Annotation
The family of this 94-nucleotide sequence from Flavobacterium crassostreae is "Flavo-1 RNA". It is annotated as a small RNA.
RNA sequence: AUGUAGCUGCGUAAGGGAUGGUAGUGGCAUCCUUUUAAGUAGUCCCCAGGUUUUGGGGGCUACUUAAAAGAUAUAACGGACAGCCCGACCUGAA
Numbered sequence: 001a002u003g004u005a006g007c008u009g010c011g012u013a014a015g016g017g018a019u020g021g022u023a024g025u026g027g028c029a030u031c032c033u034u035u036u037a038a039g040u041a042g043u044c045c046c047c048a049g050g051u052u053u054u055g056g057g058g059g060c061u062a063c064u065u066a067a068a069a070g071a072u073a074u075a076a077c078g079g080a081c082a083g084c085c086c087g088a089c090c091u092g093a094a
Stems, first nucleotide, its partner, number of pairs: 015086003019082002024077002029072003035067014
Lineage of the source: Bacteria > Pseudomonadati > Bacteroidota > Flavobacteriia > Flavobacterium.
The match comes from Rfam's covariance-model search (62 bits).